A member of the RNA family "Eukaryotic large subunit ribosomal RNA" from Cryptomonas paramaecium, 438 nucleotides of a longer RNA. Its family is annotated with ribosome and structural constituent of ribosome in the Gene Ontology. Taxonomically the source falls in Cryptomonas (Eukaryota, Cryptophyceae, Cryptomonadales, Cryptomonadaceae). The family's consensus secondary structure is taken from published work.
Nucleotides: 438
Stems, first nucleotide, its partner, number of pairs: 001420010011409002017078001019077005025071001082401007423438004
Number, partner (000 for none) and nucleotide at each position: 001420c002419g003418a004417a005416u006415g007414g008413a009412g010411u011409u012408u013000u014000a015000u016000g017078u018000u019077u020076u021075u022074u023073c024000a025071u026000g027000c028000a029000u030000g031000u032000u033000u034000c035000a036000u037000u038000u039000u040000u041000u042000u043000u044000u045000a046000a047000u048000a049000a050000a051000g052000g053000a054000a055000u056000g057000g058000u059000u060000u061000c062000g063000u064000g065000u066000u067000g068000a069000a070000a071025a072000a073023g074022a075021a076020a077019a078017a079000u080000c081000g082401a083400a084399g085398u086397u087396u088395u089000u090000u091000u092000u093000a094000u095000c096000a097000u098000u099000u100000u101000u102000c103000u104000g105000u106000u107000u108000u109000g110000u111000c112000a113000u114000u115000u116000c117000u118000g119000u120000a121000a122000g123000u124000a125000a126000c127000a128000a129000u130000a131000c132000a133000a134000u135000g136000g137000c138000u139000u140000c141000g142000g143000u144000u145000u146000u147000a148000a149000g150000u151000u152000u153000u154000a155000u156000g157000u158000c159000a160000g161000u162000u163000u164000c165000c166000u167000u168000u169000u170000u171000g172000u173000u174000a175000g176000c177000g178000u179000a180000a181000a182000g183000a184000g185000a186000u187000a188000u189000a190000u191000g192000u193000a194000u195000a196000g197000a198000a199000g200000a201000u202000g203000u204000u205000u206000a207000u208000u209000u210000u211000a212000u213000g214000u215000a216000c217000u218000u219000c220000c221000u222000u223000a224000u225000a226000u227000g228000u229000a230000u231000a232000u233000u234000u235000u236000g237000u238000g239000u240000a241000a242000u243000a244000a245000a246000a247000a248000u249000c250000g251000u252000u253000g254000u255000u256000u257000c258000g259000g260000u261000u262000u263000u264000u265000u266000u267000u268000u269000g270000g271000c272000u273000a274000u275000a276000g277000a278000c279000a280000c281000g282000g283000a284000a285000g286000c287000u288000g289000u290000u291000c292000u293000a294000u295000u296000u297000c298000u299000c300000u301000u302000u303000u304000g305000g306000a307000g308000a309000g310000a311000u312000u313000u314000c315000u316000g317000g318000g319000u320000c321000u322000u323000a324000c325000c326000u327000a328000c329000c330000u331000a332000g333000u334000u335000u336000u337000u338000u339000u340000u341000u342000c343000u344000u345000u346000u347000a348000c349000g350000u351000g352000u353000a354000a355000a356000a357000g358000a359000a360000a361000a362000a363000a364000a365000a366000a367000c368000u369000a370000g371000g372000u373000a374000g375000g376000u377000a378000a379000g380000a381000c382000c383000c384000a385000g386000a387000a388000a389000a390000a391000a392000a393000a394000c395088a396087a397086a398085a399084c400083u401082u402000a403000a404000a405000g406000a407000a408012a409011a410000g411010a412009c413008u414007u415006u416005a417004u418003u419002c420001g421000a422000c423438c424437c425436g426435u427000c428000u429000u430000g431000a432000a433000a434000c435426a436425c437424g438423g